[Rfam]
RNA sequence: GGUUGCAAGUUUGAGGCCAAAGCAGAAACACUCACAGAGUGGCCUGACAGAUUCCAACAAAUCUGCAAAUUGUGCU
Numbered sequence: 001g002g003u004u005g006c007a008a009g010u011u012u013g014a015g016g017c018c019a020a021a022g023c024a025g026a027a028a029c030a031c032u033c034a035c036a037g038a039g040u041g042g043c044c045u046g047a048c049a050g051a052u053u054c055c056a057a058c059a060a061a062u063c064u065g066c067a068a069a070u071u072g073u074g075c076u
Stems, first nucleotide, its partner, number of pairs: 015044004021076004026071002028040002048065006
A member of the RNA family "Mammalian CPEB3 ribozyme" from Alligator mississippiensis, 76 nucleotides long. Pairs were carried over by alignment from the consensus structure, which is taken from published work. A search with the family's covariance model found it, with a score of 40 bits.